[Rfam]
RNA: Small nucleolar RNA SNORA77
Organism: Etheostoma spectabile
RNA sequence: GCAGACUCACUCUGUUCUUUGCUGUUCACUCCAGCCUGGAACUUUUUCUGUCUGCUACAUAAACAUGCAGAAUGUAACACAGGUUUUUUUUCUCCUAAAAGGCUAGUGUCAUUAUGUUCUGCUACAUUACA
Numbered sequence: 001g002c003a004g005a006c007u008c009a010c011u012c013u014g015u016u017c018u019u020u021g022c023u024g025u026u027c028a029c030u031c032c033a034g035c036c037u038g039g040a041a042c043u044u045u046u047u048c049u050g051u052c053u054g055c056u057a058c059a060u061a062a063a064c065a066u067g068c069a070g071a072a073u074g075u076a077a078c079a080c081a082g083g084u085u086u087u088u089u090u091u092c093u094c095c096u097a098a099a100a101g102g103c104u105a106g107u108g109u110c111a112u113u114a115u116g117u118u119c120u121g122c123u124a125c126a127u128u129a130c131a
Stems, first nucleotide, its partner, number of pairs: 001055006014042005022034003067122007074112002077109003082104005
Dot-bracket structure: ((((((.......(((((...(((.......)))...))))).......))))))...........(((((((((.(((..(((((.............)))))..))).))...))))))).........